[Rfam]
RNA sequence: CCGCCGCGUCAUUGGGGAGUAGCCGCCCUUCACCACCGAAGGGGCUUGCGUCAACACACUUGGCCGUUCGGCCAUGGCGCCAGCGGUUCCAGAACUUGGCAAGACCUUUGACCAUAUGCCUGCAUUUGGCCGGACGGGCAUAUGGUCAUUGGUGAGUUCCGGCCAGGAACU
Numbered sequence: 001c002c003g004c005c006g007c008g009u010c011a012u013u014g015g016g017g018a019g020u021a022g023c024c025g026c027c028c029u030u031c032a033c034c035a036c037c038g039a040a041g042g043g044g045c046u047u048g049c050g051u052c053a054a055c056a057c058a059c060u061u062g063g064c065c066g067u068u069c070g071g072c073c074a075u076g077g078c079g080c081c082a083g084c085g086g087u088u089c090c091a092g093a094a095c096u097u098g099g100c101a102a103g104a105c106c107u108u109u110g111a112c113c114a115u116a117u118g119c120c121u122g123c124a125u126u127u128g129g130c131c132g133g134a135c136g137g138g139c140a141u142a143u144g145g146u147c148a149u150u151g152g153u154g155a156g157u158u159c160c161g162g163c164c165a166g167g168a169a170c171u
Base pairs, nucleotide, nucleotide: 027042028041029040044084045083046082048080049079050078051077052076053075061074062073063072064071065070085171086170087169088168089167090166

Manganese Mn2+ riboswitch aptamer (yybP-ykoY): a 171-nucleotide RNA sequence from Noviherbaspirillum pedocola. From the family's description: This RNA was originally discovered in E. coli during a large scale screen and was named SraF. The family was later found to exist upstream of related families of protein genes in many bacteria, including the the yybP and ykoK genes in B. subtilis. The specific functions of these proteins are unknown, but this structured RNA element may be involved in their genetic regulation as a riboswitch. It scores 94 bits against the family's covariance model.